Rfam assigns this 113-nucleotide RNA from a Bradyrhizobiaceae bacterium to the family "Rhizobiales sRNA Atu_At1". The literature on the family includes a 2012 paper in RNA Biol by Wilms et al., "Deep sequencing uncovers numerous small RNAs on all four replicons of the plant pathogen Agrobacterium tumefaciens". A search with the family's covariance model found it, with a score of 83 bits.
RNA sequence: AUACGCCGGGUGUCAACCGGCCCUAACGGGGAUCGAUGGACGCGGCGAUUUUGCCGGUUUCUCGUCGCGACAGCAACGCAUCGGUACGCGUGGCAAUCUAACCCGUUCCCGGC
Numbered sequence: 001a002u003a004c005g006c007c008g009g010g011u012g013u014c015a016a017c018c019g020g021c022c023c024u025a026a027c028g029g030g031g032a033u034c035g036a037u038g039g040a041c042g043c044g045g046c047g048a049u050u051u052u053g054c055c056g057g058u059u060u061c062u063c064g065u066c067g068c069g070a071c072a073g074c075a076a077c078g079c080a081u082c083g084g085u086a087c088g089c090g091u092g093g094c095a096a097u098c099u100a101a102c103c104c105g106u107u108c109c110c111g112g113c
Stems, first nucleotide, its partner, number of pairs: 006112004012022001014020001025107006035098003038094001041069007070085002074083001